[Rfam]
RNA sequence: CUAUUGAUAAAUACUAAAUCACACACAUAUCGACACGUUCUUCGGGGUGCCCUAAAUAGGGUCGAAGAUAUGGGAUAUGUGGAGGUCUAAC
Numbered sequence: 001c002u003a004u005u006g007a008u009a010a011a012u013a014c015u016a017a018a019u020c021a022c023a024c025a026c027a028u029a030u031c032g033a034c035a036c037g038u039u040c041u042u043c044g045g046g047g048u049g050c051c052c053u054a055a056a057u058a059g060g061g062u063c064g065a066a067g068a069u070a071u072g073g074g075a076u077a078u079g080u081g082g083a084g085g086u087c088u089a090a091c
Base pairs, nucleotide, nucleotide: 024081025080026079027078028077029076030075031074036072037071038070041066042065043064044063049062050061051060052059053058